RNA sequence: CCAGUCACAUCCCCUUGUCACUUCUCCAGCCAGCUUUGUGACUCUAAGUGUUGGACGGAGAACUGAUGAGGGUAGGUGGUUGU
Dot-bracket structure: ...........(((((((((.((((((..((.....................))..)))))).)))))))))...........
Description
Rfam assigns this 83-nucleotide RNA sequence from Acinonyx jubatus to the family "mir-184 microRNA precursor family". Gene Ontology terms of the family: RISC complex and gene silencing by miRNA. A search with the family's covariance model found it, with a score of 71 bits. The source organism's lineage runs through Eukaryota, Craniata, Feliformia, Felidae and Acinonyx. The family's consensus secondary structure was predicted with PFOLD.